The family of this 318-nucleotide RNA from Flavobacterium faecale is "Bacterial RNase P class A". Gene Ontology terms of the family: dimeric ribonuclease P complex, tRNA processing and ribonuclease P activity. By type it is a ribozyme. The organism belongs to Flavobacterium, within Bacteria. Rfam describes the family as follows. Ribonuclease P (RNase P) is a ubiquitous endoribonuclease, found in archaea, bacteria and eukarya as well as chloroplasts and mitochondria. A reference for the family is Frank and Pace (1998), "Ribonuclease P: unity and diversity in a tRNA processing ribozyme", Annu Rev Biochem.
[Rfam]
RNA sequence: CGCACAGACCGCCUUAUCGCUGCCCUGAUUUAUUAGGGUUGAGGAAAGUCCGGACACCAUAGAGAAGCAUAGCGGGUAACGCCCGUCGGUUCAAGCAAUUGAAUUAGGACAAGUGCAACAGAAAGUAUGUACAGGUAAUGCUGUAGUGAAACCAGGUAAACUCUAUGCGGUGAAAUAUCAAGUAUAUCGGUUUUUAAGGGUUUCUCGCCCGUUGCCGAAGGGUAGAUAGCUUGAGCUUAUGAGUAAUUGUAAGCCUAGAUAAAUGAUAAGGCACCGAUUUAUCGGUGACAGAAUCCGGCUUAUAGGUCUGUUUUUUUU
Numbered sequence: 001c002g003c004a005c006a007g008a009c010c011g012c013c014u015u016a017u018c019g020c021u022g023c024c025c026u027g028a029u030u031u032a033u034u035a036g037g038g039u040u041g042a043g044g045a046a047a048g049u050c051c052g053g054a055c056a057c058c059a060u061a062g063a064g065a066a067g068c069a070u071a072g073c074g075g076g077u078a079a080c081g082c083c084c085g086u087c088g089g090u091u092c093a094a095g096c097a098a099u100u101g102a103a104u105u106a107g108g109a110c111a112a113g114u115g116c117a118a119c120a121g122a123a124a125g126u127a128u129g130u131a132c133a134g135g136u137a138a139u140g141c142u143g144u145a146g147u148g149a150a151a152c153c154a155g156g157u158a159a160a161c162u163c164u165a166u167g168c169g170g171u172g173a174a175a176u177a178u179c180a181a182g183u184a185u186a187u188c189g190g191u192u193u194u195u196a197a198g199g200g201u202u203u204c205u206c207g208c209c210c211g212u213u214g215c216c217g218a219a220g221g222g223u224a225g226a227u228a229g230c231u232u233g234a235g236c237u238u239a240u241g242a243g244u245a246a247u248u249g250u251a252a253g254c255c256u257a258g259a260u261a262a263a264u265g266a267u268a269a270g271g272c273a274c275c276g277a278u279u280u281a282u283c284g285g286u287g288a289c290a291g292a293a294u295c296c297g298g299c300u301u302a303u304a305g306g307u308c309u310g311u312u313u314u315u316u317u318u
Base pairs, nucleotide, nucleotide: 002313004311005310006309007308008307009306010305011303012271013270014269015268016267017266018265020041022039023038024037025036026035027034028033046301047300048299050298051297052296053295054294055172056171057170058169062206063205064204065203067168068167069166070165071164072086073085074084075083076082087107088105089104090103091102092101093100094099108163109162113161114160115157116156130145131144132143133142134141176228177227178226179225187218188217189216190215191214198210199209200208201207235254236253237252238251239250240249241248242247